[Rfam]
The family of this 98-nucleotide sequence from Lates calcarifer is "mir-210 microRNA precursor family". The organism belongs to Lates, within Eukaryota. Pairs were carried over by alignment from the consensus structure, which was predicted with WAR.
Nucleotides: 098
Stems, first nucleotide, its partner, number of pairs: 005084008015074004020069003024065001025063002028061006035054002
Number, partner (000 for none) and nucleotide at each position: 001000u002000c003000u004000a005084a006083a007082a008081g009080c010079a011078g012077g013000u014000a015074a016073g017072c018071c019000a020069c021068u022067g023000a024065c025063u026062a027000a028061c029060g030059c031058a032057c033056a034000u035054u036053g037000a038000g039000c040000c041000a042000g043000u044000u045000g046000c047000c048000a049000c050000u051000u052000c053036c054035a055000c056033u057032g058031u059030g060029c061028g062026u063025g064000u065024g066000a067022c068021a069020g070000c071018g072017g073016c074015u075000a076000a077012c078011c079010u080009g081008u082007u083006u084005u085000u086000u087000g088000g089000g090000a091000g092000u093000a094000c095000c096000u097000c098000u